The family of this 96-nucleotide RNA sequence from Sus scrofa is "mir-544 microRNA precursor family".
RNA sequence: ACUACCUAGGGAUCUUAUUAAAAUGCAGAUUCUGAUCAGUAAGUCUGGAGUGUGGCCUGAGGUCUGCAUUUCUAACAAGCUCCCAGGUGAUGCUGA
Numbered sequence: 001a002c003u004a005c006c007u008a009g010g011g012a013u014c015u016u017a018u019u020a021a022a023a024u025g026c027a028g029a030u031u032c033u034g035a036u037c038a039g040u041a042a043g044u045c046u047g048g049a050g051u052g053u054g055g056c057c058u059g060a061g062g063u064c065u066g067c068a069u070u071u072c073u074a075a076c077a078a079g080c081u082c083c084c085a086g087g088u089g090a091u092g093c094u095g096a
Stems, first nucleotide, its partner, number of pairs: 003089003009083003014079003018075003021071003025067005031062003

The literature on the family includes a 2010 paper in Genes Dev by Chiang et al., "Mammalian microRNAs: experimental evaluation of novel and previously annotated genes". NCBI's taxonomy places the organism under Eukaryota, Teleostomi, Euteleostomi, Dipnotetrapodomorpha, Sus. The family has 16 seed sequences and 10,750 matches in Rfam 15.1. Rfam links the family to the GO terms miRNA-mediated post-transcriptional gene silencing and RISC complex.